RNA: Guanidine-I riboswitch aptamer
Organism: Pseudomonas sp. HAR-UPW-AIA-41
RNA sequence: GCAAUAGCCGACUAGGGUUCCGGCCUGCCUCACCCGGCAGGUGGCUGGUCCGAGAGUCGGCGACCUCCAUCGAGGUUACACGGCGGGAUAAAAGCCCGGGAGAA
Numbered sequence: 001g002c003a004a005u006a007g008c009c010g011a012c013u014a015g016g017g018u019u020c021c022g023g024c025c026u027g028c029c030u031c032a033c034c035c036g037g038c039a040g041g042u043g044g045c046u047g048g049u050c051c052g053a054g055a056g057u058c059g060g061c062g063a064c065c066u067c068c069a070u071c072g073a074g075g076u077u078a079c080a081c082g083g084c085g086g087g088a089u090a091a092a093a094g095c096c097c098g099g100g101a102g103a104a
Base pairs, nucleotide, nucleotide: 007061008060009059010058011057012056015051016050020048021047022045023042024041025040026039027038028037062077063076064075065074066073067072079099081102085097086096087095